[Rfam]
RNA sequence: UGCAAUUCUCAGGGCGGGGUGCGAUUCCCCACCGGCGGUAUUCCGGCUGGUCCGGAGAGCCCGCGAGCGCCUGUUGCGAAAGACAGGGUCAAGCAGAUCUGGUGCAAGGCCAGAGCCGACGGUGACAGUCCGGAUGGAAGAGAAUGACA
Number, nucleotide and partner (000 for none) at each position: 001u000002g000003c000004a000005a145006u144007u143008c142009u141010c140011a000012g000013g000014g000015c000016g000017g029018g028019g027020u000021g000022c000023g000024a000025u000026u000027c019028c018029c017030c000031a129032c128033c118034g117035g064036c063037g062038g061039u000040a000041u000042u000043c000044c000045g000046g000047c000048u000049g000050g000051u000052c000053c000054g000055g000056a000057g000058a000059g116060c115061c038062c037063g036064c035065g000066a000067g094068c093069g000070c000071c000072u000073g000074u000075u000076g000077c000078g000079a000080a000081a000082g000083a000084c000085a000086g000087g000088g000089u000090c000091a000092a000093g068094c067095a000096g000097a000098u114099c113100u112101g111102g110103u000104g000105c000106a000107a000108g000109g000110c102111c101112a100113g099114a098115g060116c059117c034118g033119a000120c132121g131122g130123u000124g000125a000126c000127a000128g032129u031130c122131c121132g120133g000134a000135u000136g000137g000138a000139a000140g010141a009142g008143a007144a006145u005146g000147a000148c000149a000
About this RNA
A member of the RNA family "FMN riboswitch aptamer (RFN element)" from Desulfobulbus sp. Tol-SR, 149 nucleotides long. The base pairs follow the family's consensus structure, which is taken from published work. About the family: The RFN element is a highly conserved domain that is found frequently in the 5'-untranslated regions of prokaryotic mRNAs that encode for flavin mononucleotide (FMN) biosynthesis and transport proteins.